A member of the RNA family "c-di-AMP riboswitch aptamer (ydaO/yuaA leader)" from Actinoplanes auranticolor, 135 nucleotides long. The match comes from Rfam's covariance-model search (69 bits). NCBI's taxonomy places the organism under Bacteria, Bacillati, Actinomycetota, Actinomycetes, Actinoplanes. The base pairs follow the family's consensus structure.

RNA sequence: CCACGGUCACCGCCUCCGCCACGACGAACCGGGGAACCAACCGAAGCAGCACCGGGGUGAAUCCGCGCGAGCGGUAGGGGCCUUCUUCCCGCCCCGAACCCGUCAGCUAACCCGGUAGGCGGCCCGAGCGGAAGA
Dot-bracket structure: .......(.((...((.........))((((((....(...............)(((.....((((....))))..((((...........))))...))).........)))))).)).)..............